[Rfam]
RNA sequence: GGAUACUUGAGAGGAGUUGCCCCUAGUACGAGAGGACCGGGGUGAACGAUCCACUGGUGGACCAGUUGUUAUGCCAAUAGCAGUGCUGGGUAGCUAUGAUCGGACAGGAUAACCGCUGAAGGCAUCUAAGCGGGAAGCCCCCCUCAAAACAAGGUAUCCCUGAGAGCCGAGGUAGACCACCUCGUCGAUAGGCCAGAGAUGUAAGCGUAGUAAUACGUUCAGUUGACUGGUACUAAUGGCUCGAUAG
Numbered sequence: 001g002g003a004u005a006c007u008u009g010a011g012a013g014g015a016g017u018u019g020c021c022c023c024u025a026g027u028a029c030g031a032g033a034g035g036a037c038c039g040g041g042g043u044g045a046a047c048g049a050u051c052c053a054c055u056g057g058u059g060g061a062c063c064a065g066u067u068g069u070u071a072u073g074c075c076a077a078u079a080g081c082a083g084u085g086c087u088g089g090g091u092a093g094c095u096a097u098g099a100u101c102g103g104a105c106a107g108g109a110u111a112a113c114c115g116c117u118g119a120a121g122g123c124a125u126c127u128a129a130g131c132g133g134g135a136a137g138c139c140c141c142c143c144u145c146a147a148a149a150c151a152a153g154g155u156a157u158c159c160c161u162g163a164g165a166g167c168c169g170a171g172g173u174a175g176a177c178c179a180c181c182u183c184g185u186c187g188a189u190a191g192g193c194c195a196g197a198g199a200u201g202u203a204a205g206c207g208u209a210g211u212a213a214u215a216c217g218u219u220c221a222g223u224u225g226a227c228u229g230g231u232a233c234u235a236a237u238g239g240c241u242c243g244a245u246a247g
Stems, first nucleotide, its partner, number of pairs: 001159008011145004017045007047102005055096003062089005067082006107139002113133005164242004168184005189235003192231005198224002205218005
RNA: Bacterial large subunit ribosomal RNA, nucleotides 2621 to 2867